Rfam assigns this 217-nucleotide RNA from Aidingimonas halophila to the family "Group II catalytic intron D1-D4-6". Rfam links the family to the GO term Group II intron splicing. Lineage of the source: Bacteria > Pseudomonadota > Oceanospirillales > Halomonadaceae > Aidingimonas. About the family: Group II introns are found in rRNA, tRNA and mRNA of organelles in fungi, plants and protists, and also in mRNA in bacteria.
RNA sequence: AGAGUCCCACCCGGCCAAGGCUAGCCACCAGCCGGUAGCGAGUGUUGCGUGGUGUCGGGCAACCGACACUGCGAAGCGUACACAGCGAGUGAGCAGGCCGUGUGAUUGAGCACCGAAAUGACUAAUACCGUGGUCGCCGACAGUGUUAACUGACUGGAAGGCAAUACCGAAUCAUCGUUGAGGCUGGGUGAGACGGGGCCGCCGGUGUCAAAGAGCA
Number, nucleotide and partner (000 for none) at each position: 001a000002g000003a000004g000005u000006c000007c000008c000009a000010c000011c000012c034013g033014g032015c031016c000017a000018a000019g029020g028021c000022u186023a185024g184025c183026c000027a000028c020029c019030a000031g015032c014033c013034g012035g000036u088037a000038g086039c085040g000041a000042g083043u082044g081045u080046u078047g077048c073049g072050u071051g070052g069053u068054g067055u066056c065057g064058g063059g000060c000061a000062a000063c058064c057065g056066a055067c054068a053069c052070u051071g050072c049073g048074a000075a000076g000077c047078g046079u000080a045081c044082a043083c042084a000085g039086c038087g000088a036089g000090u000091g000092a000093g000094c000095a000096g000097g000098c000099c000100g000101u000102g000103u000104g000105a000106u000107u211108g209109a000110g208111c207112a206113c205114c204115g203116a000117a000118a000119u000120g000121a000122c000123u000124a000125a000126u000127a000128c000129c000130g202131u201132g200133g199134u198135c197136g162137c161138c160139g000140a000141c156142a155143g154144u153145g000146u000147u000148a000149a000150c000151u000152g000153a144154c143155u142156g141157g000158a000159a000160g138161g137162c136163a000164a000165u000166a000167c196168c195169g194170a000171a000172u191173c000174a189175u188176c187177g000178u000179u000180g000181a000182g000183g025184c024185u023186g022187g176188g175189u174190g000191a172192g000193a000194c169195g168196g167197g135198g134199c133200c132201g131202c130203c115204g114205g113206u112207g111208u110209c108210a000211a107212a000213g000214a000215g000216c000217a000